Source information: This 68-nucleotide RNA sequence from Noviherbaspirillum sedimenti belongs to the Rfam family "Betaproteobacteria toxic small RNA". The family's consensus secondary structure was predicted with WAR. Overexpression in amino aid rich medium attenuates growth, suggesting role in repressing amino acid intake and metabolism. The organism belongs to Noviherbaspirillum, within Bacteria.
RNA sequence: CGUCUCCUCCAAUCUCCUCAAAGAAUUGGAUUCAGCCCGCAAGCCGUAACGCUAGCGGGCUUUUUUUU
Numbered sequence: 001c002g003u004c005u006c007c008u009c010c011a012a013u014c015u016c017c018u019c020a021a022a023g024a025a026u027u028g029g030a031u032u033c034a035g036c037c038c039g040c041a042a043g044c045c046g047u048a049a050c051g052c053u054a055g056c057g058g059g060c061u062u063u064u065u066u067u068u
Base pairs, nucleotide, nucleotide: 008030009029010028011027012026013024014023034061035060036059037058038057039056040055